RNA: Bacterial RNase P class A
RNA sequence: AAAGCGAGCCGGGCAACCGCCAGUGAAAACUGGAGGAAAGUCCGGGCACCACAGAGCAGGAUGCCAGCUAACUGCUGGGCGCCGUGAGGCGAUGGAAAGUGCCGCAGAGAGCAGACCGCCGAUGGCCCCGCAAGGGGCACAGGCAAGGGUGAAAGGGUGCGGUAAGAGCGCACCGCGCAACGGGCAACCGUUGUGGCAGGGUAAACCCCAUCCGGUGCAAGACCAAAUAGACGCACACGCAGCUUCGGCUGCACGGCCUUGCUCGGGCCGGUGCGUGGGUAGGUCGCUGGAGCCUGGACGCGAGUUCAGGCCGAGAUGAAUGGUUGCCACUUCCAUCUGGAGGGACAGAACCCGGCUUACAGGCUCGCUUUUGCA
Numbered sequence: 001a002a003a004g005c006g007a008g009c010c011g012g013g014c015a016a017c018c019g020c021c022a023g024u025g026a027a028a029a030c031u032g033g034a035g036g037a038a039a040g041u042c043c044g045g046g047c048a049c050c051a052c053a054g055a056g057c058a059g060g061a062u063g064c065c066a067g068c069u070a071a072c073u074g075c076u077g078g079g080c081g082c083c084g085u086g087a088g089g090c091g092a093u094g095g096a097a098a099g100u101g102c103c104g105c106a107g108a109g110a111g112c113a114g115a116c117c118g119c120c121g122a123u124g125g126c127c128c129c130g131c132a133a134g135g136g137g138c139a140c141a142g143g144c145a146a147g148g149g150u151g152a153a154a155g156g157g158u159g160c161g162g163u164a165a166g167a168g169c170g171c172a173c174c175g176c177g178c179a180a181c182g183g184g185c186a187a188c189c190g191u192u193g194u195g196g197c198a199g200g201g202u203a204a205a206c207c208c209c210a211u212c213c214g215g216u217g218c219a220a221g222a223c224c225a226a227a228u229a230g231a232c233g234c235a236c237a238c239g240c241a242g243c244u245u246c247g248g249c250u251g252c253a254c255g256g257c258c259u260u261g262c263u264c265g266g267g268c269c270g271g272u273g274c275g276u277g278g279g280u281a282g283g284u285c286g287c288u289g290g291a292g293c294c295u296g297g298a299c300g301c302g303a304g305u306u307c308a309g310g311c312c313g314a315g316a317u318g319a320a321u322g323g324u325u326g327c328c329a330c331u332u333c334c335a336u337c338u339g340g341a342g343g344g345a346c347a348g349a350a351c352c353c354g355g356c357u358u359a360c361a362g363g364c365u366c367g368c369u370u371u372u373g374c375a
Stems, first nucleotide, its partner, number of pairs: 001371010011360001012328007020033005038358003042355005047217004054264004059213005064078005079093001080091004094208002099206002101202003116148002118144003123139002126136003156174006175197001176195008221285004231276006255269005292311008